Shown here is a 125-nucleotide RNA sequence from Gossypium barbadense, a member of the family "MIR7504 microRNA precursor family". The organism belongs to Gossypium, within Eukaryota. The match comes from Rfam's covariance-model search (84 bits). Its family is annotated with miRNA-mediated post-transcriptional gene silencing and RISC complex in the Gene Ontology. The family's consensus secondary structure was predicted with RNAalifold.

RNA sequence: AAUAGGAUAAUGACAAAUCAACUUUUUUCUCUUGAUUUUUAGCUUUUUUUUCUCUUAAAAAAAUUUAAAUUCAACUAAAAAUAUUAAAAAUUAGGAGGAAAAAUUUGAUUUACUAUUCUCCUAUU
Numbered sequence: 001a002a003u004a005g006g007a008u009a010a011u012g013a014c015a016a017a018u019c020a021a022c023u024u025u026u027u028u029c030u031c032u033u034g035a036u037u038u039u040u041a042g043c044u045u046u047u048u049u050u051u052c053u054c055u056u057a058a059a060a061a062a063a064u065u066u067a068a069a070u071u072c073a074a075c076u077a078a079a080a081a082u083a084u085u086a087a088a089a090a091u092u093a094g095g096a097g098g099a100a101a102a103a104u105u106u107g108a109u110u111u112a113c114u115a116u117u118c119u120c121c122u123a124u125u
Stems, first nucleotide, its partner, number of pairs: 001125007009117004015111007023103005029097011041085002045081004